ALIL pseudoknot: a 150-nucleotide sequence from Nocardioides sp. S5. The family has 26 seed sequences and 2,146 matches in Rfam 15.1. It scores 55 bits against the family's covariance model. The base pairs follow the family's consensus structure, which is taken from published work.
RNA sequence: UGCUUUUUUCGCGGCCGCGGAGCUCGACCGCAAGAUCAAGUAAGGGUGCCGACGGCGGUGCUGGUCGACUACAUCGACCAGCACCGCGACCGGUUCGGGGUCGAGCCGAUCUGUGAGGUCCUGCGUGAUGCAGACGUCCAGAUCGCCCCG
Dot-bracket structure: ................((((.......))))................................................................(((((......((.((((.........................)))).)))))))